[Rfam]
RNA sequence: GGAUAGAAAGAGGAGGGAGCCAGGGAAGAGGCAGUGCAUGGGAAGAGACCAAACAUAGUCAUUUGAUGUUUUGGUAAAAACUCAAUCCAUGCUCUGCUUGUUCCCUGUCUCUCUCUGAUUACCACUUU
Numbered sequence: 001g002g003a004u005a006g007a008a009a010g011a012g013g014a015g016g017g018a019g020c021c022a023g024g025g026a027a028g029a030g031g032c033a034g035u036g037c038a039u040g041g042g043a044a045g046a047g048a049c050c051a052a053a054c055a056u057a058g059u060c061a062u063u064u065g066a067u068g069u070u071u072u073g074g075u076a077a078a079a080a081c082u083c084a085a086u087c088c089a090u091g092c093u094c095u096g097c098u099u100g101u102u103c104c105c106u107g108u109c110u111c112u113c114u115c116u117g118a119u120u121a122c123c124a125c126u127u128u
Base pairs, nucleotide, nucleotide: 017111018110019109021107022106023105024104025103026102027101029099030098031097032096033095034094036092037091038090039089040088042087047082

Shown here is a 128-nucleotide sequence from Brassica rapa, a member of the family "MIR408 microRNA precursor family". The family has 8 seed sequences and 299 matches in Rfam 15.1. Taxonomically the source falls in Brassica (Eukaryota, Streptophyta, Streptophytina, rosids). For this family Rfam cites "Novel and stress-regulated microRNAs and other small RNAs from Arabidopsis" (Sunkar and Zhu, Plant Cell, 2004). The match comes from Rfam's covariance-model search (66 bits). Gene Ontology terms of the family: miRNA-mediated post-transcriptional gene silencing and RISC complex.